A member of the RNA family "mir-16 microRNA precursor family" from Mauremys mutica, 73 nucleotides long. The match comes from Rfam's covariance-model search (38 bits).

RNA sequence: UGAAGGCAGCAGCACAGAAGUAAGGGUGGCAUAGUAUAGUAUUGCCACCCUUACUUCUGUGCUGCUGCUGGCA
Numbered sequence: 001u002g003a004a005g006g007c008a009g010c011a012g013c014a015c016a017g018a019a020g021u022a023a024g025g026g027u028g029g030c031a032u033a034g035u036a037u038a039g040u041a042u043u044g045c046c047a048c049c050c051u052u053a054c055u056u057c058u059g060u061g062c063u064g065c066u067g068c069u070g071g072c073a
Base pairs, nucleotide, nucleotide: 005072007070008066009065010064011063012062013061014060015059017056019055020054021053022052023051024050025049026048

The base pairs follow the family's consensus structure, which was predicted with PFOLD. Its Rfam clan is "mir-15 clan". Lineage of the source: Eukaryota > Sarcopterygii > Testudines > Geoemydidae > Mauremys. Gene Ontology terms of the family: RISC complex and miRNA-mediated post-transcriptional gene silencing.